Shown here is a 148-nucleotide RNA from Lentibacillus populi, a member of the family "SAM riboswitch aptamer (S box leader)". Pairs were carried over by alignment from the consensus structure, which is taken from published work. Gene Ontology term of the family: regulation of gene expression. A search with the family's covariance model found it, with a score of 85 bits. Taxonomically the source falls in Lentibacillus (Bacteria, Bacillati, Bacilli, Bacillaceae).
RNA sequence: UUCUUAUCCAGAGAGGUGGAGGGACUGGCCCUUUGAAGCCUCGGCAACAGACUAUAAAGGAUGUUCAAAAAGUUACCAAAGAAAAAGCGAACACCCACUUAUACAAGUACUGUGCCAAUUCCAGAAGCAUUAUGCUUGAAGAUAAGAA
Numbered sequence: 001u002u003c004u005u006a007u008c009c010a011g012a013g014a015g016g017u018g019g020a021g022g023g024a025c026u027g028g029c030c031c032u033u034u035g036a037a038g039c040c041u042c043g044g045c046a047a048c049a050g051a052c053u054a055u056a057a058a059g060g061a062u063g064u065u066c067a068a069a070a071a072g073u074u075a076c077c078a079a080a081g082a083a084a085a086a087g088c089g090a091a092c093a094c095c096c097a098c099u100u101a102u103a104c105a106a107g108u109a110c111u112g113u114g115c116c117a118a119u120u121c122c123a124g125a126a127g128c129a130u131u132a133u134g135c136u137u138g139a140a141g142a143u144a145a146g147a148a
Base pairs, nucleotide, nucleotide: 001148002147003146004145005144006143007142008141013042014041015040016039017038021031022030023029025124026123027122028121043116044115045114046113048112049111050108120140125137126136127135128134129133